Notes: Shown here is a 134-nucleotide RNA from Austrofundulus limnaeus, a member of the family "Small nucleolar RNA SNORA14". Taxonomically the source falls in Austrofundulus (Eukaryota, Actinopteri, Euacanthomorphacea, Rivulidae). ACA14 is a member of the H/ACA class of snoRNA that guide the sites of modification of uridines to pseudouridines. The match comes from Rfam's covariance-model search (44 bits). Pairs were carried over by alignment from the consensus structure, which was predicted with RNAfold.
[Rfam]
RNA sequence: UGUCACCUUUAGAAACCCCCCAGCUGCUGCCUGUAGCUUCUGGGACAAGAAAAGGUGCGAGAGGAACCUUAGAAUCAUCCAAAGCUGGGAGCUGUGUGACCGUAGCUCCUUGCUAUUUCACCUCUAAGACAGAA
Dot-bracket structure: ...(((.(((........(((((..((........))..)))))....)))...)))..........((((((.........(((.(((.((....(....)..)).))).)))........))))))......